RNA sequence: GGGGCCAACAAAGUGGUUGUGGCGUGGUGCAUCCUGUGGAACAUAUCACAGCCAGCUUUGUUGACUUCAC
Numbered sequence: 001g002g003g004g005c006c007a008a009c010a011a012a013g014u015g016g017u018u019g020u021g022g023c024g025u026g027g028u029g030c031a032u033c034c035u036g037u038g039g040a041a042c043a044u045a046u047c048a049c050a051g052c053c054a055g056c057u058u059u060g061u062u063g064a065c066u067u068c069a070c
Base pairs, nucleotide, nucleotide: 006063007062008061009060010059011058012057013056014054015053016052017051018050019049020048021047022046025045026044
mir-2 microRNA precursor family: a 70-nucleotide RNA sequence from Galleria mellonella. A reference for the family is Ambros (2001), "microRNAs: tiny regulators with great potential", Cell. The organism belongs to Galleria, within Eukaryota. A search with the family's covariance model found it, with a score of 46 bits.